A member of the RNA family "Pseudomon-groES RNA" from Pseudomonas fluvialis, 114 nucleotides long.
RNA sequence: CUAGCUGUCACCGCCAGGUGGCUGAUCACCUGGCAAGGUUGAUUCCGGCGAUGGGUGUAGCCCGUCGCCACCGGCAGCGCCGGUAUUUACUAACCCGCCGAUGCACGCAUCGGC
Number, nucleotide and partner (000 for none) at each position: 001c000002u000003a000004g000005c000006u000007g000008u000009c000010a019011c018012c017013g000014c000015c000016a000017g012018g011019u010020g000021g000022c037023u036024g000025a000026u033027c000028a000029c000030c000031u000032g000033g026034c000035a000036a023037g022038g000039u000040u000041g000042a000043u000044u000045c000046c000047g069048g068049c067050g066051a065052u064053g063054g062055g061056u000057g000058u000059a000060g000061c055062c054063c053064g052065u051066c050067g049068c048069c047070a000071c083072c082073g081074g080075c000076a000077g000078c000079g000080c074081c073082g072083g071084u000085a000086u000087u000088u000089a000090c000091u000092a000093a000094c000095c000096c000097g114098c113099c112100g111101a110102u109103g000104c000105a000106c000107g000108c000109a102110u101111c100112g099113g098114c097
Taxonomically the source falls in Pseudomonas (Bacteria, Pseudomonadati, Pseudomonadota, Gammaproteobacteria). Rfam classes the family as a cis-regulatory element.